RNA sequence: AGCUUUGUGCAAUGGCCAUAUCAUAGCCAAUGAGGUUUAUCCAAGGCACGAUAAUUGCUAAUUGAAAAAACAAAAAUAAAUUUAAAAAACCCACAUAUCCUUGGGUGAGGAUUUUUUAAAAAGUCGACUCAUCGA
Numbered sequence: 001a002g003c004u005u006u007g008u009g010c011a012a013u014g015g016c017c018a019u020a021u022c023a024u025a026g027c028c029a030a031u032g033a034g035g036u037u038u039a040u041c042c043a044a045g046g047c048a049c050g051a052u053a054a055u056u057g058c059u060a061a062u063u064g065a066a067a068a069a070a071c072a073a074a075a076a077u078a079a080a081u082u083u084a085a086a087a088a089a090c091c092c093a094c095a096u097a098u099c100c101u102u103g104g105g106u107g108a109g110g111a112u113u114u115u116u117u118a119a120a121a122a123g124u125c126g127a128c129u130c131a132u133c134g135a
Base pairs, nucleotide, nucleotide: 020052021051022050024048026047027046028045034042035041084117085116086115087114088113089112091110092109094107095106096105124135125134126133127132
The record is a 135-nucleotide RNA sequence from Myotis myotis, which matches "U4 spliceosomal RNA" in Rfam.
It scores 69 bits against the family's covariance model.
Rfam classes the family as a spliceosomal small nuclear RNA.
For this family Rfam cites "The uRNA database" (Zwieb, Nucleic Acids Res, 1997).
Gene Ontology terms of the family: spliceosomal tri-snRNP complex assembly and U4 snRNP.